[Rfam]
RNA: Fungal signal recognition particle RNA
Organism: Cytospora mali
RNA sequence: GGCUGUAGUGGCCUAUUCGGGACGGAGGCUCACAAUAUUCUCACCGCACUAUUCCAUUUCCUUCAGAACCCCACGACGGUGCCCAGCGCGAGUGCCGCAGUGGCCACCCACUCGCUUGGGUAACCAGCGAUGCUGUGCUGUGGCCCGAAGCCGCGAAGACGACACCUCAGGGAGGCUUCACUCUGCAGGGGCGUCUUCACUGCGUUUCGGCGUGCUGGAUCACACUGUCAUGGGCUUGGGGUAGAGAGGAGAGAUGGGGAUGUCAACUUCCUUUUU
Numbered sequence: 001g002g003c004u005g006u007a008g009u010g011g012c013c014u015a016u017u018c019g020g021g022a023c024g025g026a027g028g029c030u031c032a033c034a035a036u037a038u039u040c041u042c043a044c045c046g047c048a049c050u051a052u053u054c055c056a057u058u059u060c061c062u063u064c065a066g067a068a069c070c071c072c073a074c075g076a077c078g079g080u081g082c083c084c085a086g087c088g089c090g091a092g093u094g095c096c097g098c099a100g101u102g103g104c105c106a107c108c109c110a111c112u113c114g115c116u117u118g119g120g121u122a123a124c125c126a127g128c129g130a131u132g133c134u135g136u137g138c139u140g141u142g143g144c145c146c147g148a149a150g151c152c153g154c155g156a157a158g159a160c161g162a163c164a165c166c167u168c169a170g171g172g173a174g175g176c177u178u179c180a181c182u183c184u185g186c187a188g189g190g191g192c193g194u195c196u197u198c199a200c201u202g203c204g205u206u207u208c209g210g211c212g213u214g215c216u217g218g219a220u221c222a223c224a225c226u227g228u229c230a231u232g233g234g235c236u237u238g239g240g241g242u243a244g245a246g247a248g249g250a251g252a253g254a255u256g257g258g259g260a261u262g263u264c265a266a267c268u269u270c271c272u273u274u275u276u
Base pairs, nucleotide, nucleotide: 001013002012003011021276022275024271025270026269027268028267030265032263033262034261036259038257039254040253041252042251044249045248047246049244050243051242052241053240059066070234071233072232073231075229076228077227078226079225080224081223083218084217085216086215087214088213089212090211092208094206096204097203098202099201100200102145104143105142106141107140112130113129114128115127116126118125119124146150155198156197157196158195159194160193165190166189167188172183173182174181